This 391-nucleotide RNA sequence from Halalkalibacter wakoensis belongs to the Rfam family "Bacterial RNase P class B". The source organism's lineage runs through Bacteria, Bacilli, Bacillaceae, Halalkalibacter and Halalkalibacter wakoensis. Rfam describes the family as follows. Ribonuclease P (RNase P) is a ubiquitous endoribonuclease, found in archaea, bacteria and eukarya as well as chloroplasts and mitochondria. Its best characterised activity is the generation of mature 5'-ends of tRNAs by cleaving the 5'-leader elements of precursor-tRNAs. Cellular RNase Ps are ribonucleoproteins. RNA from bacterial RNase Ps retains its catalytic activity in the absence of the protein subunit, i.e. it is a ribozyme. Rfam classes the family as a ribozyme.

[Rfam]
RNA sequence: GCAUUCAGGUAAUCGCUGCACGCUUGUCGUGUAGAGGAAAGUCCAUGCUCGCACGGACUGCGAUGUCCGUAGUGAUCGUGCCUAGCCAAUUCAUAAGCUAGGGUAGUCUGGUUAUGACUGGACUAACGGCAAGGGAAGCACCUACGUCUUCGGAUAUGGUGUGAUACCUUUGAAAGUGCCACAGUGACGGAGUCCAUUUGGAAACGAAUGGAGUGGAACGAGGUAAACCCCACGAGCGAGAAACCCAAAAUAUGGUAGGGGCAUCUUCUCAUACGGAAAUUGAACUGUUAAGAAGAACAAGAGACUGAUCUCUUGUAGAUAGAUGAUUACCACCGGAGUACGAGGCUCAUCACCGUUUGCAGUACAAAGGAACAGAACAUGGCUUAUCGAA
Numbered sequence: 001g002c003a004u005u006c007a008g009g010u011a012a013u014c015g016c017u018g019c020a021c022g023c024u025u026g027u028c029g030u031g032u033a034g035a036g037g038a039a040a041g042u043c044c045a046u047g048c049u050c051g052c053a054c055g056g057a058c059u060g061c062g063a064u065g066u067c068c069g070u071a072g073u074g075a076u077c078g079u080g081c082c083u084a085g086c087c088a089a090u091u092c093a094u095a096a097g098c099u100a101g102g103g104u105a106g107u108c109u110g111g112u113u114a115u116g117a118c119u120g121g122a123c124u125a126a127c128g129g130c131a132a133g134g135g136a137a138g139c140a141c142c143u144a145c146g147u148c149u150u151c152g153g154a155u156a157u158g159g160u161g162u163g164a165u166a167c168c169u170u171u172g173a174a175a176g177u178g179c180c181a182c183a184g185u186g187a188c189g190g191a192g193u194c195c196a197u198u199u200g201g202a203a204a205c206g207a208a209u210g211g212a213g214u215g216g217a218a219c220g221a222g223g224u225a226a227a228c229c230c231c232a233c234g235a236g237c238g239a240g241a242a243a244c245c246c247a248a249a250a251u252a253u254g255g256u257a258g259g260g261g262c263a264u265c266u267u268c269u270c271a272u273a274c275g276g277a278a279a280u281u282g283a284a285c286u287g288u289u290a291a292g293a294a295g296a297a298c299a300a301g302a303g304a305c306u307g308a309u310c311u312c313u314u315g316u317a318g319a320u321a322g323a324u325g326a327u328u329a330c331c332a333c334c335g336g337a338g339u340a341c342g343a344g345g346c347u348c349a350u351c352a353c354c355g356u357u358u359g360c361a362g363u364a365c366a367a368a369g370g371a372a373c374a375g376a377a378c379a380u381g382g383c384u385u386a387u388c389g390a391a
Stems, first nucleotide, its partner, number of pairs: 004391003007387001008331007016034006039385003043382005048240005053070006076235005081102006103127001104125009128230002131170004139161004146155003176228002178224003193212008244260003264296006297316008333370002338365004